[Rfam]
Background: Shown here is a 112-nucleotide RNA from Streptomyces sp. DvalAA-14, a member of the family "TPP riboswitch aptamer (THI element)". Vitamin B(1) in its active form thiamin pyrophosphate (TPP) is an essential coenzyme that is synthesised by coupling of pyrimidine and thiazole moieties in bacteria.

RNA sequence: ACAUUCCGACAGGGGAGCGCCUGCGACGGCGCUGAGAGUGCGGCCCCCGAGGCCGCAGACCCUCCAACCUGAUCCGGGUCAUACCGGCGUAGGGAGUCAGCACAUGAAGUCC
Dot-bracket structure: .....(.(((((((..(((((......)))))......(((((((.....)))))))..))))....((((..((((......))))..))))..))).)............
NCBI's taxonomy places the organism under Bacteria, Actinomycetota, Actinomycetes, Kitasatosporales, Streptomyces.